[Rfam]
RNA sequence: AGCAAAAUGAUGAAAAUUUCAUAAUCUGAAUUCCAAUGUGGAAUUUUCGUAUCAAAAGGUCUUCAAAGUUCUCUGAUUGCU
Numbered sequence: 001a002g003c004a005a006a007a008u009g010a011u012g013a014a015a016a017u018u019u020c021a022u023a024a025u026c027u028g029a030a031u032u033c034c035a036a037u038g039u040g041g042a043a044u045u046u047u048c049g050u051a052u053c054a055a056a057a058g059g060u061c062u063u064c065a066a067a068g069u070u071c072u073c074u075g076a077u078u079g080c081u
Stems, first nucleotide, its partner, number of pairs: 001081005

Small nucleolar RNA R160: an 81-nucleotide RNA sequence from Handroanthus impetiginosus.
snoR160 is a C/D box small nucleolar RNA, which acts as a methylation guide for 25S ribosomal RNA in plants. snoR160 has been alternatively named snoZ270 in rice.
The source organism's lineage runs through Eukaryota, Bignoniaceae, Crescentiina, Tabebuia alliance and Handroanthus.
Rfam links the family to the GO terms nucleolus and RNA processing.
Rfam classes the family as a C/D-box small nucleolar RNA.
A search with the family's covariance model found it, with a score of 68 bits.
The literature on the family includes a 2003 paper in Nucleic Acids Res by Chen et al., "The high diversity of snoRNAs in plants: identification and comparative study of 120 snoRNA genes from Oryza sativa".